[Rfam]
RNA: U5 spliceosomal RNA
Organism: Gasterosteus aculeatus
RNA sequence: ACACUCUAGUUUCUCUUCAGAUCGCAUAAAUCUUUCGCCUUUUACUAAAGAUUUCCGUGGAGAGGAACACUAUGAGUUUUAACUAAUUUUUUGAUGCCCUGCUUCACUGCGGGGCU
Numbered sequence: 001a002c003a004c005u006c007u008a009g010u011u012u013c014u015c016u017u018c019a020g021a022u023c024g025c026a027u028a029a030a031u032c033u034u035u036c037g038c039c040u041u042u043u044a045c046u047a048a049a050g051a052u053u054u055c056c057g058u059g060g061a062g063a064g065g066a067a068c069a070c071u072a073u074g075a076g077u078u079u080u081a082a083c084u085a086a087u088u089u090u091u092u093g094a095u096g097c098c099c100u101g102c103u104u105c106a107c108u109g110c111g112g113g114g115c116u
Stems, first nucleotide, its partner, number of pairs: 003077004009068011028054008094116001096115006